[Rfam]
Record summary:
A member of the RNA family "mir-7 microRNA precursor family" from Acyrthosiphon pisum, 96 nucleotides long. Its family is annotated with miRNA-mediated post-transcriptional gene silencing and RISC complex in the Gene Ontology. Rfam's curators write: This family represents the microRNA (miRNA) precursor mir-7.

Nucleotides: 096
Stems, first nucleotide, its partner, number of pairs: 002095002005092002008090002011087005017081002020079004026073001028071005035065005
Number, partner (000 for none) and nucleotide at each position: 001000c002095c003094g004000u005092u006091a007000a008090c009089u010000g011087u012086c013085g014084u015083a016000u017081g018080g019000a020079a021078g022077a023076c024000u025000a026073g027000u028071g029070a030069u031068u032067u033000u034000g035065u036064u037063g038062u039061u040000u041000u042000a043000a044000a045000a046000a047000a048000a049000a050000a051000g052000u053000a054000u055000u056000u057000u058000c059000c060000u061039a062038a063037c064036a065035a066000g067032a068031a069030g070029u071028c072000u073026c074000u075000a076023g077022u078021c079020u080018u081017c082000u083015u084014a085013c086012g087011a088000a089009a090008g091006u092005a093000u094003c095002g096000a